The family of this 109-nucleotide RNA from Quercus lobata is "Small nucleolar RNA SNORD90". NCBI's taxonomy places the organism under Eukaryota, Magnoliopsida, Fagales, Fagaceae, Quercus. snoRNA HBII-295 belongs to the family of C/D snoRNAs. The family has 18 seed sequences and 545 matches in Rfam 15.1. A reference for the family is Huttenhofer et al. (2001), "RNomics: an experimental approach that identifies 201 candidates for novel, small, non-messenger RNAs in mouse", EMBO J. The family's RNA type in Rfam is C/D-box small nucleolar RNA. The match comes from Rfam's covariance-model search (42 bits).
RNA sequence: ACUUAAGUUUUUGGAGUGACUAAUUUUCCCAUAGGUUUGAGUCUGAGGACCAUGCAAGACCUUGGUCCUCGGACUCAAAUCUAUGGGGAAACUAGUCACUCCAAAAGUU
Numbered sequence: 001a002c003u004u005a006a007g008u009u010u011u012u013g014g015a016g017u018g019a020c021u022a023a024u025u026u027u028c029c030c031a032u033a034g035g036u037u038u039g040a041g042u043c044u045g046a047g048g049a050c051c052a053u054g055c056a057a058g059a060c061c062u063u064g065g066u067c068c069u070c071g072g073a074c075u076c077a078a079a080u081c082u083a084u085g086g087g088g089a090a091a092c093u094a095g096u097c098a099c100u101c102c103a104a105a106a107g108u109u
Stems, first nucleotide, its partner, number of pairs: 013102009026089011039074001042073002045070001047068006